[Rfam]
Nucleotides: 069
Base pairs, nucleotide, nucleotide: 002054003053004052005051006050007049008048011022012021013020014019029045030044031043032042037068038067039066040065041064
Number, partner (000 for none) and nucleotide at each position: 001000u002054g003053c004052c005051a006050g007049c008048c009000u010000a011022u012021c013020u014019c015000a016000a017000c018000g019014g020013g021012g022011g023000a024000g025000a026000a027000a028000a029045g030044c031043g032042g033000a034000g035000u036000c037068a038067u039066u040065a041064a042032c043031c044030g045029c046000c047000u048008g049007g050006c051005u052004g053003g054002c055000u056000a057000a058000u059000c060000u061000u062000u063000c064041u065040u066039g067038a068037u069000u
Overview:
int-alpA RNA: a 69-nucleotide sequence. By type it is a small RNA. Pairs were carried over by alignment from the consensus structure, which is taken from published work. From the family's description: Acidobacteria (1 example), Planctomycetes (1 example), Proteobacteria.